Shown here is a 35-nucleotide sequence from Chitinophaga solisilvae, a member of the family "DUF805b RNA".
RNA sequence: UAAGCGGCCUCCGAAAAGCUUUGACAGAGUAGGAA
Dot-bracket structure: .((((....[[[.....))))..........]]].
Rfam classes the family as a cis-regulatory element. The base pairs follow the family's consensus structure, which is taken from published work.